[Rfam]
RNA: MIR319 microRNA precursor family
Organism: Morus notabilis
RNA sequence: CAGAAAUGGGAUUUCCUUGCAGUCCAAAAACAUGAACUGAAUGAUCAUUGGAUGCAAUUUUGUUCUUUGUUUUGGACUGAAGGGAGCUCCUAAUUCUU
Numbered sequence: 001c002a003g004a005a006a007u008g009g010g011a012u013u014u015c016c017u018u019g020c021a022g023u024c025c026a027a028a029a030a031c032a033u034g035a036a037c038u039g040a041a042u043g044a045u046c047a048u049u050g051g052a053u054g055c056a057a058u059u060u061u062g063u064u065c066u067u068u069g070u071u072u073u074g075g076a077c078u079g080a081a082g083g084g085a086g087c088u089c090c091u092a093a094u095u096c097u098u
Stems, first nucleotide, its partner, number of pairs: 007092005013086006021078002024075005